[Rfam]
RNA sequence: CUGCACAGUGAACACACCUGAGGGCUUUAUAGUUCUCUUGGCUUUAAUUCUGUGCUAAAGCAACGGCUGUUCUUUUCCUCUGCAUUAAAAGGACUCCUUUAUCCUUUUAUAUGUAUUCAAAAGGUCAGCACAAAU
Numbered sequence: 001c002u003g004c005a006c007a008g009u010g011a012a013c014a015c016a017c018c019u020g021a022g023g024g025c026u027u028u029a030u031a032g033u034u035c036u037c038u039u040g041g042c043u044u045u046a047a048u049u050c051u052g053u054g055c056u057a058a059a060g061c062a063a064c065g066g067c068u069g070u071u072c073u074u075u076u077c078c079u080c081u082g083c084a085u086u087a088a089a090a091g092g093a094c095u096c097c098u099u100u101a102u103c104c105u106u107u108u109a110u111a112u113g114u115a116u117u118c119a120a121a122a123g124g125u126c127a128g129c130a131c132a133a134a135u
Base pairs, nucleotide, nucleotide: 003055004054005053006052007051008050010049014045017040020037022035024033025032026031057073059071060070061069062068079121081119082118083113084112085111087108088107089106090105091104092103093102
This 135-nucleotide sequence from Erinaceus europaeus belongs to the Rfam family "Small nucleolar RNA SNORA22". About the family: ACA22 is a member of the H/ACA class of snoRNA that guide the sites of modification of uridines to pseudouridines. Its family is annotated with RNA processing and nucleolus in the Gene Ontology. Lineage of the source: Eukaryota > Dipnotetrapodomorpha > Theria > Erinaceidae > Erinaceus. Rfam classes the family as an H/ACA-box small nucleolar RNA.